[Rfam]
RNA sequence: AAAUUGAAUAGGCAAACCUAGAGAAAUUUAGGGACGCAAAGCUAGAGGGGCUAAGGUUGAAAAACUAUGCCAGCCAGUUGCCAAA
Numbered sequence: 001a002a003a004u005u006g007a008a009u010a011g012g013c014a015a016a017c018c019u020a021g022a023g024a025a026a027u028u029u030a031g032g033g034a035c036g037c038a039a040a041g042c043u044a045g046a047g048g049g050g051c052u053a054a055g056g057u058u059g060a061a062a063a064a065c066u067a068u069g070c071c072a073g074c075c076a077g078u079u080g081c082c083a084a085a
Stems, first nucleotide, its partner, number of pairs: 012037002017032006040079004047075002049071003056065003